Rfam assigns this 524-nucleotide part of an RNA from Legionella rubrilucens to the family "Bacterial large subunit ribosomal RNA". The organism belongs to Legionella, within Bacteria. Gene Ontology terms of the family: structural constituent of ribosome and ribosome.

[Rfam]
Nucleotides: 524
Stems, first nucleotide, its partner, number of pairs: 007519010022504001023468002027439002029436007036428002038170002046107003049062003068101007077089002112121003122139007141167009174205001175203005185192002215222002225424001226253005236244002256421004262357004269348002272345009284332003290305005308312001314326003369393008400415005455462002478490004
Number, partner (000 for none) and nucleotide at each position: 001000a002000g003000a004000g005000a006000a007519g008518c009517g010516c011515a012514a013513a014512c015511g016510g017000u018000g019000g020000a021000u022504g023468c024467c025000u026000u027439g028438g029436c030435a031434g032433u033432a034431a035430g036428a037427g038170g039169c040000g041000a042000a043000g044000a045000a046107g047106g048105a049062c050061g051060u052000g053000g054000a055000a056000u057000c058000c059000u060051g061050c062049g063000a064000a065000a066000a067000g068101c069100u070099c071098u072097g073096g074095g075000g076000a077089g078088u079000u080000g081000g082000a083000a084000a085000c086000g087000u088078g089077c090000g091000u092000u093000g094000a095074u096073c097072c098071a099070g100069a101068g102000a103000u104000g105048u106047c107046c108000g109000a110000a111000u112121g113120g114119g115000g116000g117000a118000a119114c120113c121112c122139g123138g124137c125136u126135g127134c128133a129000g130000u131000g132000a133128u134127g135126c136125a137124g138123u139122c140000a141167u142166c143165u144164u145163u146162a147161a148160c149159u150000g151000a152000a153000u154000a155000c156000a157000u158000a159149g160148g161147u162146u163145a164144a165143a166142g167141a168000a169039g170038c171000g172000a173000a174205c175203u176202c177201g178200g179199g180000g181000a182000a183000c184000u185192g186191a187000a188000a189000c190000a191186u192185c193000u194000a195000a196000g197000u198000a199179c200178c201177c202176g203175a204000a205174g206000g207000a208000a209000a210000a211000g212000a213000a214000a215222u216221c217000a218000a219000u220000u221216g222215a223000g224000a225424u226253u227252c228251u229250c230249u231000u232000a233000g234000u235000a236244g237243c238000g239000g240000c241000g242000a243237g244236c245000g246000a247000a248000c249230g250229g251228g252227g253226a254000a255000g256421a257420g258419c259418c260000u261000g262357g263356u264355g265354u266000g267000a268000u269348u270347u271000a272345u273344u274343a275342a276341u277340c278339a279338a280337u281000g282000g283000a284332g285331u286330a287000g288000a289000a290305c291304a292303g293302a294301u295000u296000g297000g298000g299000a300000a301294a302293u303292c304291u305290g306000a307000c308312c309000g310000u311000a312308g313000g314326g315325g316324g317000u318000g319000a320000u321000a322000g323000u324316c325315c326314c327000g328000u329000a330286u331285a332284c333000g334000a335000a336000g337280a338279u339278u340277g341276a342275u343274u344273a345272a346000g347270g348269a349000a350000c351000u352000a353000a354265g355264c356263a357262c358000g359000c360000g361000a362000a363000g364000a365000a366000g367000u368000a369393g370392g371391c372390c373389g374388g375387g376386a377000c378000a379000c380000g381000u382000g383000a384000a385000a386376u387375c388374c389373u390372g391371g392370u393369u394000g395000a396000a397000u398000a399000u400415g401414g402413g403412u404411g405000g406000a407000c408000c409000a410000u411404c412403a413402u414401c415400c416000a417000a418259g419258g420257c421256u422000a423000a424225a425000u426000a427037c428036u429000c430035c431034u432033u433032a434031c435030u436029g437000a438028c439027c440000g441000a442000u443000a444000g445000u446000g447000a448000a449000c450000c451000a452000g453000u454000a455462c456461c457000g458000u459000g460000a461456g462455g463000g464000a465000a466000a467024g468023g469000c470000g471000a472000a473000a474000a475000g476000a477000a478490c479489c480488g481487c482000g483000g484000a485000g486000a487481g488480c489479g490478g491000a492000g493000u494000g495000a496000a497000a498000u499000a500000g501000a502000c503000c504022c505000u506000g507000a508000a509000a510016c511015c512014g513013u514012u515011u516010g517009c518008g519007u520000a521000c522000a523000a524000g
Clan: LSU clan.
The match comes from Rfam's covariance-model search (2844 bits).